Nucleotides: 134
Stems, first nucleotide, its partner, number of pairs: 003058004009050002019044005026037002062134002067129007083114003087110003091106002097102001
Number, partner (000 for none) and nucleotide at each position: 001000g002000c003058g004057c005056a006055u007000u008000c009050u010049u011000a012000a013000a014000a015000a016000c017000c018000c019044c020043c021042c022041a023040g024000c025000u026037g027036c028000u029000g030000c031000a032000c033000u034000u035000a036027g037026c038000u039000u040023c041022u042021g043020g044019g045000a046000c047000a048000a049010g050009a051000a052000a053000g054000a055006a056005u057004g058003c059000a060000a061000g062134a063133g064000c065000a066000u067129u068128u069127c070126u071125a072124g073123a074000g075000u076000a077000a078000a079000g080000c081000a082000a083114a084113g085112c086000u087110g088109a089108g090000g091106g092105c093000u094000g095000c096000a097102c098000u099000g100000c101000c102097g103000u104000g105092g106091c107000u108089c109088u110087u111000u112085g113084c114083u115000u116000a117000u118000u119000c120000a121000a122000c123073u124072u125071u126070a127069g128068g129067a130000c131000a132000c133063u134062u